[Rfam]
Streptococcus sRNA SpR18: a 119-nucleotide RNA sequence from Mageeibacillus indolicus.
The sequence is in the family's curated seed alignment.
It is annotated as a small RNA.
RNA sequence: AAUAGAAUCCAGUAUUUUGAAUGGUUUGGGAUAUAUUGGACGUUUGGAAAAGAAGAAUGGGAAUAAUAGUUCCAAGUGGUUUACAUUUGGACAAAAAAAGACCGUAGUUUUUAGACUGC
Number, nucleotide and partner (000 for none) at each position: 001a000002a027003u000004a000005g000006a026007a025008u024009c023010c000011a000012g000013u000014a000015u000016u000017u000018u000019g000020a000021a000022u000023g009024g008025u007026u006027u002028g000029g112030g111031a000032u000033a000034u000035a000036u000037u104038g103039g102040a000041c000042g000043u054044u053045u052046g000047g000048a000049a000050a000051a000052g045053a044054a043055g000056a000057a000058u000059g000060g000061g000062a000063a000064u000065a000066a000067u000068a000069g092070u091071u000072c090073c089074a088075a087076g086077u085078g084079g000080u000081u000082u000083a000084c078085a077086u076087u075088u074089g073090g072091a070092c069093a000094a000095a000096a000097a000098a000099a000100g000101a000102c039103c038104g037105u000106a000107g000108u000109u000110u000111u030112u029113a000114g000115a000116c000117u000118g000119c000